[Rfam]
RNA sequence: CUGCAGUCAAUUAAGCCGACUGGGUUCCUCUGCUGGUAGGUGCCCAGUGUGCAGUGGCUGCGAACAGCAACAUCCUUGGUAGUGUAAGUGGCCUGUUGCUUGUACGGGCUGCUCCAAGGGACCUUGGAGACACUG
Numbered sequence: 001c002u003g004c005a006g007u008c009a010a011u012u013a014a015g016c017c018g019a020c021u022g023g024g025u026u027c028c029u030c031u032g033c034u035g036g037u038a039g040g041u042g043c044c045c046a047g048u049g050u051g052c053a054g055u056g057g058c059u060g061c062g063a064a065c066a067g068c069a070a071c072a073u074c075c076u077u078g079g080u081a082g083u084g085u086a087a088g089u090g091g092c093c094u095g096u097u098g099c100u101u102g103u104a105c106g107g108g109c110u111g112c113u114c115c116a117a118g119g120g121a122c123c124u125u126g127g128a129g130a131c132a133c134u135g
Stems, first nucleotide, its partner, number of pairs: 002053004019048004025042001027040002078123003089111006
RNA: Small nucleolar RNA SNORA70